RNA sequence: UUUUUAUUGGACGUUGACUGUCAUGUGUCGCAUUUUUAUUGGACGUUAAUUUCAUGUACUUAAUUAGCUUUAAAGUCCAAUAAAAGUGCAACACGUGAUGAUAAAUGUUC
Dot-bracket structure: ...................((((.((...((.((((.(((......................................))).)))).))...)).))))...........
Numbered sequence: 001u002u003u004u005u006a007u008u009g010g011a012c013g014u015u016g017a018c019u020g021u022c023a024u025g026u027g028u029c030g031c032a033u034u035u036u037u038a039u040u041g042g043a044c045g046u047u048a049a050u051u052u053c054a055u056g057u058a059c060u061u062a063a064u065u066a067g068c069u070u071u072a073a074a075g076u077c078c079a080a081u082a083a084a085a086g087u088g089c090a091a092c093a094c095g096u097g098a099u100g101a102u103a104a105a106u107g108u109u110c
Stems, first nucleotide, its partner, number of pairs: 020099004025094002030089002033086004038081003
This 110-nucleotide RNA sequence from Glycine max belongs to the Rfam family "MIR1520 microRNA precursor family". Rfam links the family to the GO terms RISC complex and miRNA-mediated post-transcriptional gene silencing. Lineage of the source: Eukaryota > Magnoliopsida > eudicotyledons > Fabaceae > Glycine subgen. Soja. The match comes from Rfam's covariance-model search (66 bits).